The record is a 106-nucleotide RNA from Baia soyae, which matches "Glycine riboswitch aptamer" in Rfam.
About the family: This family represents the bacterial glycine riboswitch.
RNA sequence: AUGAAGGUGAGAGGAGAGACUGUUGAUCGAUUUGAUCGACGGCGCCGAAGGAGCAAACUUCUGAUAAAGAAGUGAAUCUCUCAGGCAAAAGGAGGCUUGCUGGACG
Numbered sequence: 001a002u003g004a005a006g007g008u009g010a011g012a013g014g015a016g017a018g019a020c021u022g023u024u025g026a027u028c029g030a031u032u033u034g035a036u037c038g039a040c041g042g043c044g045c046c047g048a049a050g051g052a053g054c055a056a057a058c059u060u061c062u063g064a065u066a067a068a069g070a071a072g073u074g075a076a077u078c079u080c081u082c083a084g085g086c087a088a089a090a091g092g093a094g095g096c097u098u099g100c101u102g103g104a105c106g
Stems, first nucleotide, its partner, number of pairs: 006101006020042007044086003047082002051080003057073006